[Rfam]
RNA: Bacterial large subunit ribosomal RNA, nucleotides 2157 to 2743
Organism: Thermodesulfatator indicus
RNA sequence: CCCGCGGUGGGACGGAAAGACCCCGUGAAGCUUUACUGCAGCUUGGCAUUGCACUUCGGUGCAGGAUGUGCAGGAUAGGUGGGAGGCUGAGAAGCCCGGGCGCCAGCUCGGGUGGAGCCGUCCUUGAGAUACCACCCUUCCUGCAUCGGGGUGCUAACCUGGAGGGGUAAGCCUCCUCAGGGACAGUGCCUGGUGGGCAGUUUGACUGGGGCGGUCGCCUCCUGAAAGGUAACGGAGGCGUCCAAAGGUACCCUCAGGCGGAUUGGAAACCCGCCGUUGAGUGCAAGGGCAGAAGGGUGCUUGACUGCGAGGCCGACGGGCCGAGCAGGGACGAAAGUCGGGCCUAGUGAUCCGGCGGUGCCGAGUGGAAGGGCCGUCGCUCAACGGAUAAAAGUUACUCCGGGGAUAACAGGCUGAUCGCUCCCAAGAGUUCACAUCGACGGAGCGGUUUGGCACCUCGAUGUCGGCUCAUCCCAUCCUGGGGCUGGAGAAGGUCCCAAGGGUCGGGCUGUUCGCCCGUUAAAGGGGUACGUGAGCUGGGUUCAGAACGUCGUGAGACAGUUCGGUCCCUAUCCACCGUGGGCGUA
Numbered sequence: 001c002c003c004g005c006g007g008u009g010g011g012a013c014g015g016a017a018a019g020a021c022c023c024c025g026u027g028a029a030g031c032u033u034u035a036c037u038g039c040a041g042c043u044u045g046g047c048a049u050u051g052c053a054c055u056u057c058g059g060u061g062c063a064g065g066a067u068g069u070g071c072a073g074g075a076u077a078g079g080u081g082g083g084a085g086g087c088u089g090a091g092a093a094g095c096c097c098g099g100g101c102g103c104c105a106g107c108u109c110g111g112g113u114g115g116a117g118c119c120g121u122c123c124u125u126g127a128g129a130u131a132c133c134a135c136c137c138u139u140c141c142u143g144c145a146u147c148g149g150g151g152u153g154c155u156a157a158c159c160u161g162g163a164g165g166g167g168u169a170a171g172c173c174u175c176c177u178c179a180g181g182g183a184c185a186g187u188g189c190c191u192g193g194u195g196g197g198c199a200g201u202u203u204g205a206c207u208g209g210g211g212c213g214g215u216c217g218c219c220u221c222c223u224g225a226a227a228g229g230u231a232a233c234g235g236a237g238g239c240g241u242c243c244a245a246a247g248g249u250a251c252c253c254u255c256a257g258g259c260g261g262a263u264u265g266g267a268a269a270c271c272c273g274c275c276g277u278u279g280a281g282u283g284c285a286a287g288g289g290c291a292g293a294a295g296g297g298u299g300c301u302u303g304a305c306u307g308c309g310a311g312g313c314c315g316a317c318g319g320g321c322c323g324a325g326c327a328g329g330g331a332c333g334a335a336a337g338u339c340g341g342g343c344c345u346a347g348u349g350a351u352c353c354g355g356c357g358g359u360g361c362c363g364a365g366u367g368g369a370a371g372g373g374c375c376g377u378c379g380c381u382c383a384a385c386g387g388a389u390a391a392a393a394g395u396u397a398c399u400c401c402g403g404g405g406a407u408a409a410c411a412g413g414c415u416g417a418u419c420g421c422u423c424c425c426a427a428g429a430g431u432u433c434a435c436a437u438c439g440a441c442g443g444a445g446c447g448g449u450u451u452g453g454c455a456c457c458u459c460g461a462u463g464u465c466g467g468c469u470c471a472u473c474c475c476a477u478c479c480u481g482g483g484g485c486u487g488g489a490g491a492a493g494g495u496c497c498c499a500a501g502g503g504u505c506g507g508g509c510u511g512u513u514c515g516c517c518c519g520u521u522a523a524a525g526g527g528g529u530a531c532g533u534g535a536g537c538u539g540g541g542u543u544c545a546g547a548a549c550g551u552c553g554u555g556a557g558a559c560a561g562u563u564c565g566g567u568c569c570c571u572a573u574c575c576a577c578c579g580u581g582g583g584c585g586u587a
Base pairs, nucleotide, nucleotide: 001583002582003581004580005579006578007577008576010575011574012573014570015569022404023403024402025401027400028399029396030395031394032393033392035201036200037199038198042193043192045190046189047188048187051154052153053152054151055150056149057148058147059146060145061144062143063142064141065140066139068137078136079135080134081133082132085119086118087117094113095112096111097110098109099108100107101106158181159180160179162178163177164176165175166174167173204216205215206214207213217239218238219237220236221235222234240385242342243341248300249299250298251297252296253295254280255279257275258274259273260272261271281290282289305328306327307326308325311322312321313320330339331338332337353379354378355377356376357375358374359373361372362371413454414453415452417451418448419447420446421445422444423443424442428438429437465540466538467537468536469535470532471529472528473527474526475525478503479502481498482497483496484495485494486493505519506518507517508516509515546564547563548562549561550559551558552557